[Rfam]
RNA sequence: ACAGUACAAACUGAGCAGGCCGACUAAGGAGCCGGGUCACUUUUGUGACAGUGGAUAUCGAAUUUUCUCAUCCACGGGACAGUA
Number, nucleotide and partner (000 for none) at each position: 001a000002c000003a000004g000005u000006a000007c000008a000009a000010a083011c082012u081013g080014a000015g000016c078017a000018g033019g032020c031021c000022g000023a000024c000025u000026a000027a000028g000029g000030a000031g020032c019033c018034g000035g000036g049037u048038c047039a046040c045041u000042u000043u000044u000045g040046u039047g038048a037049c036050a000051g075052u074053g073054g072055a071056u070057a000058u000059c000060g000061a000062a000063u000064u000065u000066u000067c000068u000069c000070a056071u055072c054073c053074a052075c051076g000077g000078g016079a000080c013081a012082g011083u010084a000

This 84-nucleotide RNA sequence from Acetitomaculum ruminis belongs to the Rfam family "NiCo (Nickel/Cobalt) riboswitch aptamer". The family is grouped with related families in Rfam's "NiCo_riboswitches".